[Rfam]
RNA sequence: CACUAGUACGCACCGCAACGGGCAGGAGUGGGGGACCCACCAAUUCGGGCGUCCCAGACGCCCUUGGGGUUAAGCAGGCUCGUCCCAGCCAUCCGGUGGGGAGAACGUUUCCCACGCAGCACCGAAGGAUCUGGGCGAACCGGCCGGGCCAUCCCAGCCCGCACCCGACAGCUCACCCCGCAGGCGAUCGGGAUUGGACUG
Numbered sequence: 001c002a003c004u005a006g007u008a009c010g011c012a013c014c015g016c017a018a019c020g021g022g023c024a025g026g027a028g029u030g031g032g033g034g035a036c037c038c039a040c041c042a043a044u045u046c047g048g049g050c051g052u053c054c055c056a057g058a059c060g061c062c063c064u065u066g067g068g069g070u071u072a073a074g075c076a077g078g079c080u081c082g083u084c085c086c087a088g089c090c091a092u093c094c095g096g097u098g099g100g101g102a103g104a105a106c107g108u109u110u111c112c113c114a115c116g117c118a119g120c121a122c123c124g125a126a127g128g129a130u131c132u133g134g135g136c137g138a139a140c141c142g143g144c145c146g147g148g149c150c151a152u153c154c155c156a157g158c159c160c161g162c163a164c165c166c167g168a169c170a171g172c173u174c175a176c177c178c179c180g181c182a183g184g185c186g187a188u189c190g191g192g193a194u195u196g197g198a199c200u201g
Base pairs, nucleotide, nucleotide: 001025028181029180030179031178032177033176038066039065067166068165069164075143077141078140146160147159148158149157